Source information:
The family of this 85-nucleotide RNA sequence from Sphingobacterium sp. JB170 is "Group II catalytic intron D1-D4-1". NCBI's taxonomy places the organism under Bacteria, Pseudomonadati, Bacteroidota, Sphingobacteriales, Sphingobacterium. The literature on the family includes a 2001 paper in Trends Genet by Bonen and Vogel, "The ins and outs of group II introns". The base pairs follow the family's consensus structure.
RNA sequence: GCAGAAUAAUAAUGCUAUUAUGCUUUAGUCAGAAGUCAGCAGACGACAUAGUACCUUGUUCCUCUACACUAAACAAGGGAAGGUC
Numbered sequence: 001g002c003a004g005a006a007u008a009a010u011a012a013u014g015c016u017a018u019u020a021u022g023c024u025u026u027a028g029u030c031a032g033a034a035g036u037c038a039g040c041a042g043a044c045g046a047c048a049u050a051g052u053a054c055c056u057u058g059u060u061c062c063u064c065u066a067c068a069c070u071a072a073a074c075a076a077g078g079g080a081a082g083g084u085c
Stems, first nucleotide, its partner, number of pairs: 001023002006021006035044003045085003054078006